[Rfam]
RNA sequence: GCUGAGCUCAGUAACGUGGGCUUGUAACCCAAGUGGGGGCAUUAAGGUUACUGAACGUUGGGCCGUUCCAAUUGGCUGGACUCAAGGUGCUAUUUACUGGCCCGCCCGUUCCAAGCGGGGAGUUGGCCCACGGAAUCCAGGCGAAGGCUUGGGCUUCGAGGGCCUUAGAGAGGAGGGCACCGCGUCAGGCUGGAUUUACAGAGCAGCGAUAACUUCCCACUCUCUGCAGUUGAAGGAUAACGGGCCGGUGCUCCUUGGGUCCAACAAAGCCAGUUGAAUCGGUCUUAAUUGGACAGUAACCUUU
Numbered sequence: 001g002c003u004g005a006g007c008u009c010a011g012u013a014a015c016g017u018g019g020g021c022u023u024g025u026a027a028c029c030c031a032a033g034u035g036g037g038g039g040c041a042u043u044a045a046g047g048u049u050a051c052u053g054a055a056c057g058u059u060g061g062g063c064c065g066u067u068c069c070a071a072u073u074g075g076c077u078g079g080a081c082u083c084a085a086g087g088u089g090c091u092a093u094u095u096a097c098u099g100g101c102c103c104g105c106c107c108g109u110u111c112c113a114a115g116c117g118g119g120g121a122g123u124u125g126g127c128c129c130a131c132g133g134a135a136u137c138c139a140g141g142c143g144a145a146g147g148c149u150u151g152g153g154c155u156u157c158g159a160g161g162g163c164c165u166u167a168g169a170g171a172g173g174a175g176g177g178c179a180c181c182g183c184g185u186c187a188g189g190c191u192g193g194a195u196u197u198a199c200a201g202a203g204c205a206g207c208g209a210u211a212a213c214u215u216c217c218c219a220c221u222c223u224c225u226g227c228a229g230u231u232g233a234a235g236g237a238u239a240a241c242g243g244g245c246c247g248g249u250g251c252u253c254c255u256u257g258g259g260u261c262c263a264a265c266a267a268a269g270c271c272a273g274u275u276g277a278a279u280c281g282g283u284c285u286u287a288a289u290u291g292g293a294c295a296g297u298a299a300c301c302u303u304u
Stems, first nucleotide, its partner, number of pairs: 001040003004023007028037003044303010056291002058288003061284005069276009078262008087253001089251001091250002097248008106236002109234003113230001115227009125164005131158004136153007165170001172217005183208003190201003